RNA sequence: GUAAAUAAAGAUCUACGAAAUCAUCGGUCUAUUAGGCGAUCAAUCCCCAAUUCAAUCAAAAUAUUGUUUUCUCUCUCUCUCCAUAAACAAAUAGUAUUUUUGAUAUGACAGCCUAAUAGAUGAUAUGAUUAUUUCAGUUGUCUUUGUUUGGAUAUCACAUUAACUGAUUGUAAAAUCAGUGUCAAAGCCCGGCUUGCCGGGUUUUUU
Numbered sequence: 001g002u003a004a005a006u007a008a009a010g011a012u013c014u015a016c017g018a019a020a021u022c023a024u025c026g027g028u029c030u031a032u033u034a035g036g037c038g039a040u041c042a043a044u045c046c047c048c049a050a051u052u053c054a055a056u057c058a059a060a061a062u063a064u065u066g067u068u069u070u071c072u073c074u075c076u077c078u079c080u081c082c083a084u085a086a087a088c089a090a091a092u093a094g095u096a097u098u099u100u101u102g103a104u105a106u107g108a109c110a111g112c113c114u115a116a117u118a119g120a121u122g123a124u125a126u127g128a129u130u131a132u133u134u135c136a137g138u139u140g141u142c143u144u145u146g147u148u149u150g151g152a153u154a155u156c157a158c159a160u161u162a163a164c165u166g167a168u169u170g171u172a173a174a175a176u177c178a179g180u181g182u183c184a185a186a187g188c189c190c191g192g193c194u195u196g197c198c199g200g201g202u203u204u205u206u207u
Base pairs, nucleotide, nucleotide: 002150003149004148005147006146007145008144009143010142011141012140015134017132019130020129021128022127023126024125027121028120029119030118031117032116033115034114035113036112037111040108041107042106055104056103057102058101059100060099061098062096063095064094065093066092067091068090069089163180164179165178166177167176168175169174184205185204186203187202188201189200190199191198192197
RNA: FasX small RNA
Organism: Streptococcus dysgalactiae